[Rfam]
RNA sequence: CCCGGACGCGACUGGCGGCACCGGGGAUGGGAGUGACCAUCGGGGAGCUCGUCGCGGAAGGUCGACCGCCUGGGCCUUCCGC
Numbered sequence: 001c002c003c004g005g006a007c008g009c010g011a012c013u014g015g016c017g018g019c020a021c022c023g024g025g026g027a028u029g030g031g032a033g034u035g036a037c038c039a040u041c042g043g044g045g046a047g048c049u050c051g052u053c054g055c056g057g058a059a060g061g062u063c064g065a066c067c068g069c070c071u072g073g074g075c076c077u078u079c080c081g082c
Stems, first nucleotide, its partner, number of pairs: 001057002005053003008048002012044002014070005027040004059077005
Rfam assigns this 82-nucleotide RNA from Micromonospora sp. WMMC415 to the family "ZMP/ZTP riboswitch aptamer (pfl RNA motif)". The base pairs follow the family's consensus structure, which is taken from published work. The match comes from Rfam's covariance-model search (43 bits). A reference for the family is Kim et al. (2015), "An ancient riboswitch class in bacteria regulates purine biosynthesis and one-carbon metabolism", Mol Cell.